[Rfam]
RNA sequence: GUGGGAAGAGGGGUGGGGCCCGGGACUGUACCCAUGUGAGGACUAUUCUUGAGUCCCGCUCUUGUUCUGAGCACCACCCCUCUCUCAG
Numbered sequence: 001g002u003g004g005g006a007a008g009a010g011g012g013g014u015g016g017g018g019c020c021c022g023g024g025a026c027u028g029u030a031c032c033c034a035u036g037u038g039a040g041g042a043c044u045a046u047u048c049u050u051g052a053g054u055c056c057c058g059c060u061c062u063u064g065u066u067c068u069g070a071g072c073a074c075c076a077c078c079c080c081u082c083u084c085u086c087a088g
Stems, first nucleotide, its partner, number of pairs: 002087005008082009018072002021069006036059003040056005
Dot-bracket structure: .(((((.(((((((((.((.((((((.........(((.(((((.......))))))))....)))))).)).)))))))))))))).